[Rfam]
A member of the RNA family "mir-219 microRNA precursor family" from Eptatretus burgeri, 82 nucleotides long. The match comes from Rfam's covariance-model search (61 bits). Rfam 15.1 lists 1,318 matches to the family in 774 species.
RNA sequence: UCCGCUGUUGAUUGUCCAAACGCAAUUCUUGCCGGGCGUUUGUGCGCAGCGCAAGGGUUGUGCAUUGGACAUCAACAGCUGU
Numbered sequence: 001u002c003c004g005c006u007g008u009u010g011a012u013u014g015u016c017c018a019a020a021c022g023c024a025a026u027u028c029u030u031g032c033c034g035g036g037c038g039u040u041u042g043u044g045c046g047c048a049g050c051g052c053a054a055g056g057g058u059u060g061u062g063c064a065u066u067g068g069a070c071a072u073c074a075a076c077a078g079c080u081g082u
Stems, first nucleotide, its partner, number of pairs: 002081001004079004009074004014070005021062011